[Rfam]
RNA sequence: AAACCCGGAGGUCAACACCCGACAGCGCGUGGCGCCCUCGGGUGCUAUUUGG
Numbered sequence: 001a002a003a004c005c006c007g008g009a010g011g012u013c014a015a016c017a018c019c020c021g022a023c024a025g026c027g028c029g030u031g032g033c034g035c036c037c038u039c040g041g042g043u044g045c046u047a048u049u050u051g052g
Stems, first nucleotide, its partner, number of pairs: 016044007025035004